sul1 RNA: a 56-nucleotide RNA from Lichenicoccus roseus. The organism belongs to Lichenicoccus, within Bacteria.
RNA sequence: ACCGGACCCGGUGCAAUCCCGGGUGGCUAUUCCAGCCGCCAAUCCGCUGGAUCAUA
Numbered sequence: 001a002c003c004g005g006a007c008c009c010g011g012u013g014c015a016a017u018c019c020c021g022g023g024u025g026g027c028u029a030u031u032c033c034a035g036c037c038g039c040c041a042a043u044c045c046g047c048u049g050g051a052u053c054a055u056a
Stems, first nucleotide, its partner, number of pairs: 006024006031051006
Rfam classes the family as a riboswitch.